[Rfam]
RNA sequence: UCCGGUGUUCUGCCACCGGUACCCUACCGGGCCAUGCGUCGGGAGUAAUCCCGGGGUGCGAAGCGUCCGGGACACUGUGGCCUCCGCCUGAUACGCGGGCAACUGAACCGCGAGGGGACGUUGUGACUGCCAGCCUCAGGGCGGUCGGGAGC
Numbered sequence: 001u002c003c004g005g006u007g008u009u010c011u012g013c014c015a016c017c018g019g020u021a022c023c024c025u026a027c028c029g030g031g032c033c034a035u036g037c038g039u040c041g042g043g044a045g046u047a048a049u050c051c052c053g054g055g056g057u058g059c060g061a062a063g064c065g066u067c068c069g070g071g072a073c074a075c076u077g078u079g080g081c082c083u084c085c086g087c088c089u090g091a092u093a094c095g096c097g098g099g100c101a102a103c104u105g106a107a108c109c110g111c112g113a114g115g116g117g118a119c120g121u122u123g124u125g126a127c128u129g130c131c132a133g134c135c136u137c138a139g140g141g142c143g144g145u146c147g148g149g150a151g152c
Stems, first nucleotide, its partner, number of pairs: 002019006028069005033060001035058003039054006084098004089093001099124004108115002126145006